The family of this 133-nucleotide RNA from Coriobacteriales bacterium OH1046 is "FMN riboswitch aptamer (RFN element)". The organism belongs to Coriobacteriales, within Bacteria.
RNA sequence: AUGCAGUUUCAGGGCGGGGUGCGAUUCCCCACUGGCGGUGACGGGCGGGACCCGGAGCCCGCGAGCCGCACGAGCGGUCGAUCUGGUGAGAAUCCAGGGCCAACGGUUACAGUCCGGAUGGAAGAAACGGAGG
Numbered sequence: 001a002u003g004c005a006g007u008u009u010c011a012g013g014g015c016g017g018g019g020u021g022c023g024a025u026u027c028c029c030c031a032c033u034g035g036c037g038g039u040g041a042c043g044g045g046c047g048g049g050a051c052c053c054g055g056a057g058c059c060c061g062c063g064a065g066c067c068g069c070a071c072g073a074g075c076g077g078u079c080g081a082u083c084u085g086g087u088g089a090g091a092a093u094c095c096a097g098g099g100c101c102a103a104c105g106g107u108u109a110c111a112g113u114c115c116g117g118a119u120g121g122a123a124g125a126a127a128c129g130g131a132g133g
Stems, first nucleotide, its partner, number of pairs: 004130001006128005017029003031113002033102002035062004057100002065078003082098005104116003
Dot-bracket structure: ...(.(((((......(((.......))).[[((((((..................[[))))..(((........)))...(((((.......)))))]])).(((.....]]))).......))))).)...